Shown here is a 116-nucleotide sequence from Roseiterribacter gracilis, a member of the family "rpsB sRNA". On this family, see Meyer et al., BMC Genomics 2009: "Identification of candidate structured RNAs in the marine organism 'Candidatus Pelagibacter ubique'". Rfam classes the family as a small RNA.

[Rfam]
RNA sequence: CACACGCGGGCUUGCGCUGACCGGGAGUUCCGGUCCGUGCUCCGGUGUCUUGUGAUCACCCUUCGGGGUUUUCCUAAGGCGACGCCCGCGGCGGACGAACCGGAAAAAGGAUAUUC
Numbered sequence: 001c002a003c004a005c006g007c008g009g010g011c012u013u014g015c016g017c018u019g020a021c022c023g024g025g026a027g028u029u030c031c032g033g034u035c036c037g038u039g040c041u042c043c044g045g046u047g048u049c050u051u052g053u054g055a056u057c058a059c060c061c062u063u064c065g066g067g068g069u070u071u072u073c074c075u076a077a078g079g080c081g082a083c084g085c086c087c088g089c090g091g092c093g094g095a096c097g098a099a100c101c102g103g104a105a106a107a108a109g110g111a112u113a114u115u116c
Stems, first nucleotide, its partner, number of pairs: 001093001003091001005090007014040002022032003047080006